[Rfam]
RNA sequence: ACUUGACGGUGCGUCUCCUCCUCCCAUUUGCGCACCGCCAAGUGUUCCCCUCUGGAGGUUCAGCCGGAAACGGCACCUUCAAAACUAUAGGCCGGGCACUUGUCCGGCCUUUUUUU
Numbered sequence: 001a002c003u004u005g006a007c008g009g010u011g012c013g014u015c016u017c018c019u020c021c022u023c024c025c026a027u028u029u030g031c032g033c034a035c036c037g038c039c040a041a042g043u044g045u046u047c048c049c050c051u052c053u054g055g056a057g058g059u060u061c062a063g064c065c066g067g068a069a070a071c072g073g074c075a076c077c078u079u080c081a082a083a084a085c086u087a088u089a090g091g092c093c094g095g096g097c098a099c100u101u102g103u104c105c106g107g108c109c110u111u112u113u114u115u116u
Stems, first nucleotide, its partner, number of pairs: 001043005007037003011033004053081007089110009
A member of the RNA family "Alphaproteobacterial ar15" from Phyllobacterium sp. YR531, 116 nucleotides long. A search with the family's covariance model found it, with a score of 78 bits. For this family Rfam cites "Identification of two small regulatory RNAs linked to virulence in Brucella abortus 2308" (Caswell et al., Mol Microbiol, 2012). Rfam links the family to the GO term protein binding. The family's RNA type in Rfam is small RNA. NCBI's taxonomy places the organism under Bacteria, Pseudomonadati, Alphaproteobacteria, Hyphomicrobiales, Phyllobacterium.